[Rfam]
RNA sequence: CUUGAUGGAGCCGAGCAGCACCGGCCGGUCCUCGGCGCGGCCCUGGCCGUAGGUGGCCAGCAGCGCUUGGGCCUC
Numbered sequence: 001c002u003u004g005a006u007g008g009a010g011c012c013g014a015g016c017a018g019c020a021c022c023g024g025c026c027g028g029u030c031c032u033c034g035g036c037g038c039g040g041c042c043c044u045g046g047c048c049g050u051a052g053g054u055g056g057c058c059a060g061c062a063g064c065g066c067u068u069g070g071g072c073c074u075c
Base pairs, nucleotide, nucleotide: 015025016024031071032070033069038065039064043060044059045058047056048055049054

Rfam assigns this 75-nucleotide sequence from Streptomyces sp. SAJ15 to the family "ASpks TB sRNA". The family has 77 seed sequences and 9,052 matches in Rfam 15.1. The base pairs follow the family's consensus structure, which is taken from published work. NCBI's taxonomy places the organism under Bacteria, Bacillati, Actinomycetota, Actinomycetes, Streptomyces.